[Rfam]
Description:
The family of this 86-nucleotide RNA is "L4-Archaeoglobi ribosomal protein leades". The literature on the family includes a 2020 paper in BMC Microbiol by Eckert and Weinberg, "Discovery of 20 novel ribosomal leader candidates in bacteria and archaea". The sequence is in the family's curated seed alignment. Rfam classes the family as a cis-regulatory leader.
Nucleotides: 086
Base pairs, nucleotide, nucleotide: 001086002085003084004083005082009078011076012075013074016040017039018038023035024034025033026032043072044071045070046069047068050064051063052062053061054060
Number, partner (000 for none) and nucleotide at each position: 001086c002085u003084g004083a005082u006000u007000a008000g009078g010000a011076c012075g013074c014000a015000u016040g017039g018038g019000u020000c021000g022000a023035c024034g025033u026032u027000c028000g029000u030000g031000c032026a033025a034024c035023g036000a037000g038018c039017c040016c041000u042000u043072u044071c045070c046069c047068c048000c049000g050064u051063c052062a053061c054060a055000g056000g057000a058000u059000a060054u061053g062052u063051g064050a065000g066000u067000u068047g069046g070045g071044g072043a073000u074013g075012c076011g077000c078009c079000a080000u081000u082005a083004u084003c085002a086001g